[Rfam]
RNA sequence: UCAGACGGCCGGACGGCCGCUGGUGCGGGAGCGAUCCCGCACUGGAGGAAAGUCCGGGCUCCACGGGACUACGGUGCCGGUCAACGACCGGCGGGGGCGACCCCAGGGAAAGUGCCACAGAGAACAGACCGCCGCGGCGUAUUGCCCCUCGGGGCAACACCCCGCGGCAAGGGUGAAACGGUGGGGUAAGAGCCCACCGCGCUUCCGGCAACGGCGGCGGCACGGCAAACCCCACCGGGAGCAAGGCCGAAUAGGGGUGGACGGCGAGGCGCCUUCGGGCGUUGUCGCAGGGGCGGUCCCGCCUCUCCACCCGGGUUGGCCGCGCGAAGCCCGCAGCGAUGCGGGUUCCAGAGGAAUGGCCGUCCAUGCCCGGCAACGGGUGUGACAGAACCCGGCUUACAGGCCGUCUGACGCU
Number, nucleotide and partner (000 for none) at each position: 001u411002c410003a409004g408005a407006c406007g405008g404009c403010c402011g400012g364013a363014c362015g361016g360017c359018c358019g000020c045021u044022g043023g042024u041025g040026c039027g038028g037029g000030a000031g000032c000033g000034a000035u000036c000037c028038c027039g026040c025041a024042c023043u022044g021045g020046a000047g000048g000049a000050a398051a397052g396053u000054c395055c394056g393057g392058g391059c241060u240061c239062c238063a000064c000065g000066g000067g299068a000069c000070u296071a000072c237073g236074g235075u234076g233077c091078c090079g089080g088081u087082c000083a000084a000085c000086g000087a081088c080089c079090g078091g077092c106093g104094g103095g102096g101097g000098c000099g000100a000101c096102c095103c094104c093105a000106g092107g232108g231109a000110a000111a000112g230113u229114g226115c225116c224117a000118c000119a000120g000121a000122g000123a000124a000125c000126a000127g000128a000129c172130c171131g168132c167133c166134g165135c164136g163137g162138c000139g160140u000141a000142u000143u000144g000145c000146c000147c000148c000149u000150c000151g000152g000153g000154g000155c000156a000157a000158c000159a000160c139161c000162c137163c136164g135165c134166g133167g132168c131169a000170a000171g130172g129173g000174u000175g000176a000177a000178a000179c000180g198181g197182u196183g195184g194185g193186g000187u000188a000189a000190g000191a000192g000193c185194c184195c183196a182197c181198c180199g221200c219201g218202c217203u216204u000205c214206c213207g212208g000209c000210a000211a000212c207213g206214g205215c000216g203217g202218c201219g200220g000221c199222a000223c000224g116225g115226c114227a000228a000229a113230c112231c108232c107233c076234a075235c074236c073237g072238g062239g061240a060241g059242c000243a000244a000245g321246g320247c319248c318249g000250a000251a000252u000253a000254g000255g312256g311257g310258u309259g308260g307261a000262c000263g000264g000265c000266g000267a000268g000269g000270c000271g000272c000273c000274u000275u000276c000277g000278g000279g000280c000281g000282u000283u000284g000285u000286c000287g000288c000289a000290g305291g304292g303293g302294c301295g000296g070297u000298c000299c067300c000301g294302c293303c292304u291305c290306u000307c260308c259309a258310c257311c256312c255313g000314g000315g000316u000317u000318g248319g247320c246321c245322g000323c000324g000325c000326g000327a000328a347329g346330c345331c344332c343333g342334c341335a340336g000337c000338g000339a000340u335341g334342c333343g332344g331345g330346u329347u328348c000349c000350a000351g000352a000353g000354g000355a000356a000357u000358g018359g017360c016361c015362g014363u013364c012365c000366a000367u000368g000369c000370c000371c000372g000373g000374c000375a000376a000377c000378g000379g000380g000381u000382g000383u000384g000385a000386c000387a000388g000389a000390a000391c058392c057393c056394g055395g054396c052397u051398u050399a000400c011401a000402g010403g009404c008405c007406g006407u005408c004409u003410g002411a001412c000413g000414c000415u000
Notes
This 415-nucleotide RNA from Neoroseomonas lacus belongs to the Rfam family "Bacterial RNase P class A". A search with the family's covariance model found it, with a score of 288 bits. It is annotated as a ribozyme. Rfam links the family to the GO terms ribonuclease P activity, dimeric ribonuclease P complex and tRNA processing. Ribonuclease P (RNase P) is a ubiquitous endoribonuclease, found in archaea, bacteria and eukarya as well as chloroplasts and mitochondria. Its best characterised activity is the generation of mature 5'-ends of tRNAs by cleaving the 5'-leader elements of precursor-tRNAs. Cellular RNase Ps are ribonucleoproteins. The source organism's lineage runs through Bacteria, Pseudomonadati, Alphaproteobacteria, Acetobacteraceae and Neoroseomonas.